[Rfam]
RNA sequence: GGGUGAGGUAGAGGCGCGAACGAUCAUGAGUAGCUUUGACGAGAGACGGGUUCUUGACGACUCAUCGCGAAAGGGAUGUUCGCCGAAGCGGACAUUUACCCGGAAUGUCUGGCUGGGUCUGCACCGAACAGGUGCAGGACUGUCACUGCAGAUUCCCCUGAUCUGCCGUGGAGCACUAUCUCACUG
Numbered sequence: 001g002g003g004u005g006a007g008g009u010a011g012a013g014g015c016g017c018g019a020a021c022g023a024u025c026a027u028g029a030g031u032a033g034c035u036u037u038g039a040c041g042a043g044a045g046a047c048g049g050g051u052u053c054u055u056g057a058c059g060a061c062u063c064a065u066c067g068c069g070a071a072a073g074g075g076a077u078g079u080u081c082g083c084c085g086a087a088g089c090g091g092a093c094a095u096u097u098a099c100c101c102g103g104a105a106u107g108u109c110u111g112g113c114u115g116g117g118u119c120u121g122c123a124c125c126g127a128a129c130a131g132g133u134g135c136a137g138g139a140c141u142g143u144c145a146c147u148g149c150a151g152a153u154u155c156c157c158c159u160g161a162u163c164u165g166c167c168g169u170g171g172a173g174c175a176c177u178a179u180c181u182c183a184c185u186g
Stems, first nucleotide, its partner, number of pairs: 006181006016083006023077003033068002037064003087114003090110008115141002118138008143171004148166005